A member of the RNA family "Small nucleolar RNA snoR136" from Cannabis sativa, 143 nucleotides long. A reference for the family is Chen and Wu (2009), "Mining small RNA sequencing data: a new approach to identify small nucleolar RNAs in Arabidopsis", Nucleic Acids Res. The family has 8 seed sequences and 452 matches in Rfam 15.1. Gene Ontology terms of the family: RNA processing and nucleolus. Taxonomically the source falls in Cannabis (Eukaryota, Embryophyta, Mesangiospermae, Rosales). Rfam classes the family as an H/ACA-box small nucleolar RNA.
[Rfam]
RNA sequence: UUGGCUUCAUUUUUUUUUUCAUUAAUUAGCAUACAUUAAAUUAAAUUAAUGUAUGUUGUUAAAUGAAGUCGAAUAUAAAAUGUUCCCCUCGCUAUCCAGUGUCUACUUUUUAUGUUGCAUUUGGACGUUGGGAAACUACAUCU
Numbered sequence: 001u002u003g004g005c006u007u008c009a010u011u012u013u014u015u016u017u018u019u020c021a022u023u024a025a026u027u028a029g030c031a032u033a034c035a036u037u038a039a040a041u042u043a044a045a046u047u048a049a050u051g052u053a054u055g056u057u058g059u060u061a062a063a064u065g066a067a068g069u070c071g072a073a074u075a076u077a078a079a080a081u082g083u084u085c086c087c088c089u090c091g092c093u094a095u096c097c098a099g100u101g102u103c104u105a106c107u108u109u110u111u112a113u114g115u116u117g118c119a120u121u122u123g124g125a126c127g128u129u130g131g132g133a134a135a136c137u138a139c140a141u142c143u
Stems, first nucleotide, its partner, number of pairs: 001073002003070003008065005017058001020055002032053006082136003086132003090127002095125005104114002